[Rfam]
Shown here is an 86-nucleotide sequence from Tinamus guttatus, a member of the family "Small nucleolar RNA SNORD103/SNORD85". The pairing is the family consensus, mapped onto this sequence. Rfam classes the family as a C/D-box small nucleolar RNA.
RNA sequence: UCUGGCGAUGACGACCACCUUGCCCUCACUGAGAACCCUGUUCGCUGCUGAGAGCGUCACCGUGUACUCAGGUGAGCUGAGCCAGC
Numbered sequence: 001u002c003u004g005g006c007g008a009u010g011a012c013g014a015c016c017a018c019c020u021u022g023c024c025c026u027c028a029c030u031g032a033g034a035a036c037c038c039u040g041u042u043c044g045c046u047g048c049u050g051a052g053a054g055c056g057u058c059a060c061c062g063u064g065u066a067c068u069c070a071g072g073u074g075a076g077c078u079g080a081g082c083c084a085g086c
Stems, first nucleotide, its partner, number of pairs: 002085005